[Rfam]
RNA: Small nucleolar RNA Z13/snr52
Organism: Fomitiporia mediterranea
RNA sequence: ACUUCUGUUGUGAUGCAACCACUACGGAUGUAACGGGUAUUACCCGAGUGUCCGAGAGCGCAAACAAACCGUGUGGAUACUUCCGUUGCCUUCCUUCUGAUCUUUGCC
Numbered sequence: 001a002c003u004u005c006u007g008u009u010g011u012g013a014u015g016c017a018a019c020c021a022c023u024a025c026g027g028a029u030g031u032a033a034c035g036g037g038u039a040u041u042a043c044c045c046g047a048g049u050g051u052c053c054g055a056g057a058g059c060g061c062a063a064a065c066a067a068a069c070c071g072u073g074u075g076g077a078u079a080c081u082u083c084c085g086u087u088g089c090c091u092u093c094c095u096u097c098u099g100a101u102c103u104u105u106g107c108c
Base pairs, nucleotide, nucleotide: 004106025085026084027083028082